The family of this 508-nucleotide part of an RNA from Aphis glycines is "Eukaryotic large subunit ribosomal RNA".
RNA sequence: GACUCUAAUCUGGCAUUGUUCGGAGACAUGCCGAGGUGUAGCAUAAGUGGGAGUCGGGGGUCUAGGCGGGCGGUCUCGCGGCCGUCCGUCUCCCCGUCGACCUUGAAAUACCACUACUCGCAUCGUUUCCCCACUUACUCGGUAGAGCGGAACGCGCGGUUCCGGCCGCGGGUGCGUCCGGCCGUCGGCCGUCGUCCCGUCGCGUCGUCGGCUCGCCGUCGGUUCGUCCGGCGCGCGAUCGGCGCGCGGCGCGGUCGCCGCGCCGUCGGCCUGUGCCCGUUCGUGCCGGGCCGCGGUUGAUAUUCCGGUAGCGUUAAGCACCAGCCGAGGGCUCCGGGCGUCAAACCGCGGACCGCGUCCGUGCGCGUGCGGCCGGCCGUCAAAAGUCGCCGUCCGCGUGCGCGGCGCUUCCGCGGGCCCGGGCCCUGGUGCGAUCCGUAUUCCGAGGACACCGCCAGGUGGGGAGUUUGACUGGGGCGGUACAUCUGUCAAAAAAUAACGCAGGUGU
Number, nucleotide and partner (000 for none) at each position: 001g000002a467003c466004u465005c464006u000007a000008a000009u459010c458011u457012g456013g455014c454015a000016u000017u000018g134019u133020u000021c000022g130023g129024a128025g127026a126027c125028a123029u122030g121031c000032c120033g119034a118035g117036g000037u000038g000039u000040a000041g000042c000043a000044u000045a000046a115047g114048u113049g112050g111051g000052a000053g098054u000055c000056g000057g000058g000059g000060g000061u000062c000063u000064a000065g000066g000067c000068g000069g000070g000071c000072g000073g000074u000075c000076u000077c000078g000079c000080g000081g000082c000083c000084g000085u000086c000087c000088g000089u000090c000091u000092c000093c000094c000095c000096g000097u000098c053099g000100a000101c000102c000103u000104u000105g000106a000107a000108a000109u000110a000111c050112c049113a048114c047115u046116a000117c035118u034119c033120g032121c030122a029123u028124c000125g027126u026127u025128u024129c023130c022131c000132c000133a019134c018135u000136u000137a000138c447139u446140c445141g444142g443143u000144a000145g000146a000147g000148c438149g437150g436151a435152a000153c000154g000155c000156g185157c184158g183159g182160u181161u000162c000163c000164g000165g000166c000167c000168g000169c000170g000171g000172g000173u000174g000175c000176g000177u000178c000179c000180g000181g160182c159183c158184g157185u156186c000187g000188g000189c000190c000191g000192u000193c000194g000195u000196c000197c000198c000199g000200u000201c000202g000203c000204g000205u000206c000207g000208u000209c000210g000211g000212c000213u000214c000215g000216c000217c000218g000219u000220c000221g000222g000223u000224u000225c000226g000227u000228c000229c000230g000231g000232c000233g000234c000235g000236c000237g000238a000239u000240c000241g000242g000243c000244g000245c000246g000247c000248g000249g000250c000251g000252c000253g000254g000255u000256c000257g000258c000259c000260g000261c000262g000263c000264c000265g000266u000267c000268g000269g000270c000271c000272u000273g000274u000275g000276c000277c000278c000279g000280u000281u000282c000283g000284u000285g000286c000287c000288g000289g000290g000291c000292c000293g000294c000295g000296g000297u000298u000299g000300a000301u000302a000303u000304u000305c000306c000307g000308g000309u000310a000311g000312c000313g000314u000315u000316a000317a000318g000319c000320a000321c000322c000323a000324g000325c000326c000327g000328a000329g000330g000331g000332c000333u000334c000335c000336g000337g000338g000339c000340g000341u000342c000343a000344a000345a000346c000347c000348g000349c000350g000351g000352a000353c000354c000355g000356c000357g000358u000359c000360c000361g000362u000363g000364c000365g000366c000367g000368u000369g000370c000371g000372g000373c000374c000375g000376g000377c000378c000379g000380u000381c000382a000383a000384a000385a000386g000387u000388c000389g000390c000391c000392g000393u000394c000395c000396g000397c000398g000399u000400g000401c000402g000403c000404g000405g000406c000407g000408c000409u000410u000411c000412c000413g000414c000415g000416g000417g000418c000419c000420c000421g000422g000423g000424c000425c000426c000427u000428g000429g000430u000431g000432c000433g000434a000435u151436c150437c149438g148439u000440a000441u000442u000443c142444c141445g140446a139447g138448g000449a000450c000451a000452c000453c000454g014455c013456c012457a011458g010459g009460u000461g000462g000463g000464g005465a004466g003467u002468u000469u000470g483471a481472c480473u479474g000475g000476g000477g000478c000479g473480g472481u471482a000483c470484a506485u505486c504487u503488g502489u501490c000491a000492a000493a000494a000495a000496a000497u000498a000499a000500c000501g489502c488503a487504g486505g485506u484507g000508u000